[Rfam]
mir-221 microRNA precursor family: an 84-nucleotide sequence from Microcaecilia unicolor.
The family's consensus secondary structure was predicted with RNAalifold.
RNA sequence: UUGGGCAUGAACCUAGCAUACAAUGUAGAAUUCUGUGUAUGCUGAGCAACAGCUACAUUGUCUGCUGGGUUUCCAGCUACCUGA
Numbered sequence: 001u002u003g004g005g006c007a008u009g010a011a012c013c014u015a016g017c018a019u020a021c022a023a024u025g026u027a028g029a030a031u032u033c034u035g036u037g038u039a040u041g042c043u044g045a046g047c048a049a050c051a052g053c054u055a056c057a058u059u060g061u062c063u064g065c066u067g068g069g070u071u072u073c074c075a076g077c078u079a080c081c082u083g084a
Base pairs, nucleotide, nucleotide: 013068014067015066016065017064018063020061021060022059023058024057025056026055027054028053033052034051035050036049

The organism belongs to Microcaecilia, within Eukaryota. Its family is annotated with RISC complex and miRNA-mediated post-transcriptional gene silencing in the Gene Ontology.